RNA: mir-218 microRNA precursor family
Organism: Scleropages formosus
RNA sequence: CAGCUGUCUCUUGUGCUUGAUCUAACCAUGUGCCGCCGCCUACGCUCACCUCCACAUGGUUCCGUCAAGCACCAGGGACCGCUG
Numbered sequence: 001c002a003g004c005u006g007u008c009u010c011u012u013g014u015g016c017u018u019g020a021u022c023u024a025a026c027c028a029u030g031u032g033c034c035g036c037c038g039c040c041u042a043c044g045c046u047c048a049c050c051u052c053c054a055c056a057u058g059g060u061u062c063c064g065u066c067a068a069g070c071a072c073c074a075g076g077g078a079c080c081g082c083u084g
Stems, first nucleotide, its partner, number of pairs: 001084004006079004013072007024061008